Shown here is a 75-nucleotide sequence from Pseudomonas benzenivorans, a member of the family "c-di-GMP-I-GGC riboswitch aptamer". The match comes from Rfam's covariance-model search (61 bits). Pairs were carried over by alignment from the consensus structure, which is taken from published work. Its family is annotated with cyclic-di-GMP binding in the Gene Ontology.
RNA sequence: CCCGAGAAAGGCAAAACCCAAGUAAUUGGGCGACGCAAAGUUACGGGUCCCUAGCGGAUCGCCGAACUGCCGAAG
Numbered sequence: 001c002c003c004g005a006g007a008a009a010g011g012c013a014a015a016a017c018c019c020a021a022g023u024a025a026u027u028g029g030g031c032g033a034c035g036c037a038a039a040g041u042u043a044c045g046g047g048u049c050c051c052u053a054g055c056g057g058a059u060c061g062c063c064g065a066a067c068u069g070c071c072g073a074a075g
Base pairs, nucleotide, nucleotide: 001075003072004071011036012035017030018029019028020027021026034061039068040067041066042065044064045063046062047059048058049057